[Rfam]
RNA sequence: AAACAACCCUCUAUGUAUUGGAUAUUUGGCAGUUUUGGCCCUCAAGACCACUUUUAAAUUAGUCUUCGAUGACGUGACACCCACAAUGGUCGACACAGGCACCUCACUUAAGGGAUGUGGGUGCCACGUCAGCAAAGAGUAAGUCAAAAGUGGUCUUGAGGGCCAAAGCUGCCAAAGAUCCAAUACGUAAGGGCUGUUU
Numbered sequence: 001a002a003a004c005a006a007c008c009c010u011c012u013a014u015g016u017a018u019u020g021g022a023u024a025u026u027u028g029g030c031a032g033u034u035u036u037g038g039c040c041c042u043c044a045a046g047a048c049c050a051c052u053u054u055u056a057a058a059u060u061a062g063u064c065u066u067c068g069a070u071g072a073c074g075u076g077a078c079a080c081c082c083a084c085a086a087u088g089g090u091c092g093a094c095a096c097a098g099g100c101a102c103c104u105c106a107c108u109u110a111a112g113g114g115a116u117g118u119g120g121g122u123g124c125c126a127c128g129u130c131a132g133c134a135a136a137g138a139g140u141a142a143g144u145c146a147a148a149a150g151u152g153g154u155c156u157u158g159a160g161g162g163c164c165a166a167a168g169c170u171g172c173c174a175a176a177g178a179u180c181c182a183a184u185a186c187g188u189a190a191g192g193g194c195u196g197u198u199u
Stems, first nucleotide, its partner, number of pairs: 001199002004196002007193002012189012025176021072129002075126002078123005